Record summary
Small nucleolar RNA SNORA77: a 131-nucleotide sequence from Oryzias sinensis. ACA63 (SNORA77) is a member of the H/ACA class of snoRNAs that guide the sites of modification of uridines to pseudouridines. Pairs were carried over by alignment from the consensus structure, which was predicted with RNAalifold. By type it is an H/ACA-box small nucleolar RNA. The organism belongs to Oryzias, within Eukaryota. A search with the family's covariance model found it, with a score of 57 bits.
[Rfam]
RNA sequence: GCAGACACGCUCUGUUCUUUGCUGCAUACUCCAGCUUUGAACUUUUUCUGUCUGCUACAUAAACGUGCAGAAUGUCAAGACUAGACAGGCUUUUUUCAGGCAUGUUUAUCUGUACGUUCUGCUAUAUUUCU
Numbered sequence: 001g002c003a004g005a006c007a008c009g010c011u012c013u014g015u016u017c018u019u020u021g022c023u024g025c026a027u028a029c030u031c032c033a034g035c036u037u038u039g040a041a042c043u044u045u046u047u048c049u050g051u052c053u054g055c056u057a058c059a060u061a062a063a064c065g066u067g068c069a070g071a072a073u074g075u076c077a078a079g080a081c082u083a084g085a086c087a088g089g090c091u092u093u094u095u096u097c098a099g100g101c102a103u104g105u106u107u108a109u110c111u112g113u114a115c116g117u118u119c120u121g122c123u124a125u126a127u128u129u130c131u
Stems, first nucleotide, its partner, number of pairs: 001055006014042004022034003067122009078111002082108005